[Rfam]
RNA sequence: UUUGAGAAUGAUUAUACUACGAAAGAGUUAUCAGAGCACCAAUGAUACUGAACUGUUUACUUGCACGUCAGUCGGAUCCCAAA
Numbered sequence: 001u002u003u004g005a006g007a008a009u010g011a012u013u014a015u016a017c018u019a020c021g022a023a024a025g026a027g028u029u030a031u032c033a034g035a036g037c038a039c040c041a042a043u044g045a046u047a048c049u050g051a052a053c054u055g056u057u058u059a060c061u062u063g064c065a066c067g068u069c070a071g072u073c074g075g076a077u078c079c080c081a082a083a
Stems, first nucleotide, its partner, number of pairs: 001083004006078002
Description:
The record is an 83-nucleotide sequence from Trema andersonii, which matches "Small nucleolar RNA Z122" in Rfam. The source organism's lineage runs through Eukaryota, Streptophytina, eudicotyledons, rosids and Trema. The family's RNA type in Rfam is C/D-box small nucleolar RNA. Rfam links the family to the GO terms RNA processing and nucleolus. The literature on the family includes a 2003 paper in Nucleic Acids Res by Chen et al., "The high diversity of snoRNAs in plants: identification and comparative study of 120 snoRNA genes from Oryza sativa". Pairs were carried over by alignment from the consensus structure, which was predicted with PFOLD. The family has 23 seed sequences and 822 matches in Rfam 15.1.